[Rfam]
Rfam assigns this 93-nucleotide sequence from Saccharomonospora marina to the family "Bacterial small signal recognition particle RNA". The base pairs follow the family's consensus structure, which is taken from published work. The source organism's lineage runs through Bacteria, Bacillati, Actinomycetota, Saccharomonospora and Saccharomonospora marina. It is annotated as a non-coding RNA gene.
RNA sequence: GUUGGACCCCCGCGGCGUCCACCCUGUGAACCUCCCCAGGGCCGGAAGGCAGCAAGGAUAAGCAGGCUCUGGCGGGUGCGGGGGUCCCCUUUU
Numbered sequence: 001g002u003u004g005g006a007c008c009c010c011c012g013c014g015g016c017g018u019c020c021a022c023c024c025u026g027u028g029a030a031c032c033u034c035c036c037c038a039g040g041g042c043c044g045g046a047a048g049g050c051a052g053c054a055a056g057g058a059u060a061a062g063c064a065g066g067c068u069c070u071g072g073c074g075g076g077u078g079c080g081g082g083g084g085u086c087c088c089c090u091u092u093u
Base pairs, nucleotide, nucleotide: 004089005088007084008083009082010081011080012079013076016074017073018072019071023066024065025064026063027062033058034057035056041050042049043048